A member of the RNA family "Nuclear RNase P" from Argiope bruennichi, 281 nucleotides long.
The match comes from Rfam's covariance-model search (113 bits).
NCBI's taxonomy places the organism under Eukaryota, Opisthokonta, Panarthropoda, Araneoidea, Argiope.
From the family's description: Ribonuclease P (RNase P) is a ubiquitous endoribonuclease, found in archaea, bacteria and eukarya as well as chloroplasts and mitochondria.
RNA sequence: UGCGCGGUGAGUUUGUACAAGGGAUUACGAAAGCGCACAAGUUGCGCAUAGUUGUCCUUGGGAAGGUCUGAGAUAGUGCUCUUGCAGAUCCGUGAGGGAUCCCCGUUCAAUGCUGGGCAGGCCAAGAGCAAAUGCUAUGUUCUGCUGUGAGAUUGCAAAGGAGGCAGAAAAGCUGCUGAUGCUCUUCUGCAGCGUGAAUUUGGGAAGGCCUGUGGCAAGAAACAACAGCUCGAUGUACGAAGCCCGUAAGGGUAACUCAAUUCAGACUACUCUCCCACGCA
Numbered sequence: 001u002g003c004g005c006g007g008u009g010a011g012u013u014u015g016u017a018c019a020a021g022g023g024a025u026u027a028c029g030a031a032a033g034c035g036c037a038c039a040a041g042u043u044g045c046g047c048a049u050a051g052u053u054g055u056c057c058u059u060g061g062g063a064a065g066g067u068c069u070g071a072g073a074u075a076g077u078g079c080u081c082u083u084g085c086a087g088a089u090c091c092g093u094g095a096g097g098g099a100u101c102c103c104c105g106u107u108c109a110a111u112g113c114u115g116g117g118c119a120g121g122c123c124a125a126g127a128g129c130a131a132a133u134g135c136u137a138u139g140u141u142c143u144g145c146u147g148u149g150a151g152a153u154u155g156c157a158a159a160g161g162a163g164g165c166a167g168a169a170a171a172g173c174u175g176c177u178g179a180u181g182c183u184c185u186u187c188u189g190c191a192g193c194g195u196g197a198a199u200u201u202g203g204g205a206a207g208g209c210c211u212g213u214g215g216c217a218a219g220a221a222a223c224a225a226c227a228g229c230u231c232g233a234u235g236u237a238c239g240a241a242g243c244c245c246g247u248a249a250g251g252g253u254a255a256c257u258c259a260a261u262u263c264a265g266a267c268u269a270c271u272c273u274c275c276c277a278c279g280c281a
Stems, first nucleotide, its partner, number of pairs: 001281004007275001009273001012241007020059005033047005068265005077217004087101005102116002105113002117213007137199001242253004